[Rfam]
Nucleotides: 051
Stems, first nucleotide, its partner, number of pairs: 006024004011019001015043003
Number, partner (000 for none) and nucleotide at each position: 001000a002000g003000a004000u005000u006024u007023u008022g009021u010000c011019a012000u013000a014000a015043a016042g017041c018000g019011u020000u021009a022008c023007a024006a025000a026000g027000u028000a029000a030000a031000a032000a033000u034000a035000a036000a037000g038000a039000a040000a041017g042016c043015u044000c045000a046000c047000u048000g049000a050000g051000a
Annotation:
This 51-nucleotide RNA sequence belongs to the Rfam family "6A RNA". The base pairs follow the family's consensus structure, which is taken from published work. Rfam classes the family as a small RNA.